[Rfam]
RNA sequence: UAUUUGGCUUGUUAUGGUUGCUAUUUUUUUUUAGACGAACAAUAAUAGCCAUCGAAUGAAUGAGAGUAAACCUGAUUUUCUC
Numbered sequence: 001u002a003u004u005u006g007g008c009u010u011g012u013u014a015u016g017g018u019u020g021c022u023a024u025u026u027u028u029u030u031u032u033a034g035a036c037g038a039a040c041a042a043u044a045a046u047a048g049c050c051a052u053c054g055a056a057u058g059a060a061u062g063a064g065a066g067u068a069a070a071c072c073u074g075a076u077u078u079u080c081u082c
Base pairs, nucleotide, nucleotide: 009063010062011061012060013059016053020049021048022047023046024045025044028042029041064077065076067074
RNA: Aggregatibacter sRNA 69
Organism: Rodentibacter trehalosifermentans